[Rfam]
RNA sequence: UGCCAAAGUUUUUCUCGGCAGCUAACUGCAGCCGGUUUCUUUAAAAUUCAGCAGUUAACUGCCGAAGGAUAU
Numbered sequence: 001u002g003c004c005a006a007a008g009u010u011u012u013u014c015u016c017g018g019c020a021g022c023u024a025a026c027u028g029c030a031g032c033c034g035g036u037u038u039c040u041u042u043a044a045a046a047u048u049c050a051g052c053a054g055u056u057a058a059c060u061g062c063c064g065a066a067g068g069a070u071a072u
Base pairs, nucleotide, nucleotide: 012068013067015065016064017063018062019061020060021059023057024056025055026054027053028052029051
This 72-nucleotide RNA from Medicago truncatula belongs to the Rfam family "MIR2629 microRNA precursor family". Lineage of the source: Eukaryota > Streptophyta > Streptophytina > Fabales > Medicago. The family's consensus secondary structure was predicted with RNAalifold.